[Rfam]
Nucleotides: 083
Base pairs, nucleotide, nucleotide: 012070013069015067016066017065018064023059024058026056027055028054029053030052031051
Number, partner (000 for none) and nucleotide at each position: 001000c002000c003000c004000c005000c006000u007000a008000g009000c010000a011000a012070c013069c014000a015067u016066g017065g018064c019000u020000g021000u022000a023059g024058a025000c026056u027055g028054u029053u030052a031051c032000c033000u034000a035000c036000a037000g038000u039000g040000u041000c042000g043000u044000u045000g046000c047000u048000a049000c050000a051031g052030u053029a054028a055027c056026a057000a058024u059023c060000u061000a062000a063000a064018g065017c066016c067015a068000c069013g070012g071000u072000c073000g074000c075000c076000a077000u078000g079000g080000a081000a082000a083000c